[Rfam]
RNA: Leucine operon leader
RNA sequence: CACAAAGGUUGACUUACAUGAUUCACAAUACUCGUCUACUAAGCCUACUACUAAUCGCCUUUAAUGUGCGCGGUAUGCUGGUAGAUUGAAUUAAGAGUUAAUCUUUACCAGAGAUAAAAACCCGCGCCUGACGCGGGUUUUUUU
Numbered sequence: 001c002a003c004a005a006a007g008g009u010u011g012a013c014u015u016a017c018a019u020g021a022u023u024c025a026c027a028a029u030a031c032u033c034g035u036c037u038a039c040u041a042a043g044c045c046u047a048c049u050a051c052u053a054a055u056c057g058c059c060u061u062u063a064a065u066g067u068g069c070g071c072g073g074u075a076u077g078c079u080g081g082u083a084g085a086u087u088g089a090a091u092u093a094a095g096a097g098u099u100a101a102u103c104u105u106u107a108c109c110a111g112a113g114a115u116a117a118a119a120a121c122c123c124g125c126g127c128c129u130g131a132c133g134c135g136g137g138u139u140u141u142u143u144u
Base pairs, nucleotide, nucleotide: 004106006104007103009101010100011099012098013097014096015095032088034086035085036084037083038082039081040080041079049075050074051073052072056070057069058068117141118140119139120138121137122136123135124134125133126132